This 101-nucleotide RNA from Sphingobium cloacae belongs to the Rfam family "Repression of heat shock gene expression (ROSE) element". The base pairs follow the family's consensus structure, which is taken from published work. By type it is an RNA thermoregulator. About the family: This family represents a 5' UTR cis-regulatory element found in heat shock mRNAs and is known as the ROSE (repression of heat shock gene expression) element. The ROSE element is a negative regulator of heat shock gene expression. For this family Rfam cites "A mRNA-based thermosensor controls expression of rhizobial heat shock genes" (Nocker et al., Nucleic Acids Res, 2001).
[Rfam]
RNA sequence: CCGAACGCCAUAGCGGGUUCGGCUGGGACUAGAGGGCGCCGGCUCUCUCUCCGGCGCAUCUCAUGCCCGAAUUGCUCAUGCAGAGGAUUUGGAUAUGAGGA
Numbered sequence: 001c002c003g004a005a006c007g008c009c010a011u012a013g014c015g016g017g018u019u020c021g022g023c024u025g026g027g028a029c030u031a032g033a034g035g036g037c038g039c040c041g042g043c044u045c046u047c048u049c050u051c052c053g054g055c056g057c058a059u060c061u062c063a064u065g066c067c068c069g070a071a072u073u074g075c076u077c078a079u080g081c082a083g084a085g086g087a088u089u090u091g092g093a094u095a096u097g098a099g100g101a
Base pairs, nucleotide, nucleotide: 001022002021003020004019005018006017008016009015034059036057037056038055039054040053041052042051060099061098062097063096064095065094067092068091069090070089071088072087073086075085076084077083